[Rfam]
RNA sequence: UCUGUAAGCUGUAGAACUAGCCAUGCAGACAAAUGAGAAGCAAUCUUUUCUUUACAGAAGGCAGCAAUCCUGCAUAAACCUGGAAAUCUUUGUCCGACUUCAGACAGCCAAGUCUAGUCAUUCCCUUCAAUACAAC
Number, nucleotide and partner (000 for none) at each position: 001u000002c000003u000004g070005u000006a068007a000008g065009c064010u063011g062012u061013a000014g000015a000016a000017c000018u000019a000020g000021c000022c000023a000024u056025g055026c000027a053028g052029a051030c000031a000032a000033a000034u000035g047036a046037g045038a000039a000040g000041c000042a000043a000044u000045c037046u036047u035048u000049u000050c000051u029052u028053u027054a000055c025056a024057g000058a000059a000060g000061g012062c011063a010064g009065c008066a000067a000068u006069c000070c004071u000072g000073c000074a000075u000076a000077a000078a000079c000080c000081u000082g000083g128084a127085a126086a000087u000088c000089u000090u120091u000092g118093u117094c000095c000096g114097a113098c112099u000100u000101c000102a000103g000104a000105c000106a000107g000108c000109c000110a000111a000112g098113u097114c096115u000116a000117g093118u092119c000120a090121u000122u000123c000124c000125c000126u085127u084128c083129a000130a000131u000132a000133c000134a000135a000136c000
Small Cajal body specific RNA 3: a 136-nucleotide RNA from Mus spicilegus. NCBI's taxonomy places the organism under Eukaryota, Euarchontoglires, Glires, Myomorpha, Mus. scaRNAs are a specific class of small nuclear RNAs which localise to the Cajal bodies and guide the modification of RNA polymerase II transcribed spliceosomal RNAs U1, U2, U4, U5 and U12.